[Rfam]
RNA sequence: AAAGCAGGCUGCAAUUGCAGGGCUUCAUUCUGUGGGAGCAUUGCCAUUUUUCUGCUGAGAGUAACCCUGUUAGCACUGUUUUCAGUUUCACUCGUUUGGUAGAGAAACUGUCUGUUGUUGACAUGGACAUUU
Numbered sequence: 001a002a003a004g005c006a007g008g009c010u011g012c013a014a015u016u017g018c019a020g021g022g023c024u025u026c027a028u029u030c031u032g033u034g035g036g037a038g039c040a041u042u043g044c045c046a047u048u049u050u051u052c053u054g055c056u057g058a059g060a061g062u063a064a065c066c067c068u069g070u071u072a073g074c075a076c077u078g079u080u081u082u083c084a085g086u087u088u089c090a091c092u093c094g095u096u097u098g099g100u101a102g103a104g105a106a107a108c109u110g111u112c113u114g115u116u117g118u119u120g121a122c123a124u125g126g127a128c129a130u131u132u
Base pairs, nucleotide, nucleotide: 003056004055005054006053007052008051018043019042020041022039023038024037025036026035065126066125068123069122070121071120072119073118074117075116083110084109085108086107087106088105089104091102092101
RNA: Small nucleolar RNA SNORA69